[Rfam]
RNA sequence: CCUAGCACUGCCGUGCCUGGCUGAGUUAUGCCGUCCCGUUGGGGCU
Numbered sequence: 001c002c003u004a005g006c007a008c009u010g011c012c013g014u015g016c017c018u019g020g021c022u023g024a025g026u027u028a029u030g031c032c033g034u035c036c037c038g039u040u041g042g043g044g045c046u
Base pairs, nucleotide, nucleotide: 001020002019005016006015007014008013033045034044035043036042037041
Source information: This 46-nucleotide RNA from Lentisphaera araneosa belongs to the Rfam family "Acido-Lenti-1 RNA". The match comes from Rfam's covariance-model search (41 bits). It is annotated as a small RNA. The family's consensus secondary structure is taken from published work. Taxonomically the source falls in Lentisphaera araneosa (Bacteria, Lentisphaeria, Lentisphaerales, Lentisphaera).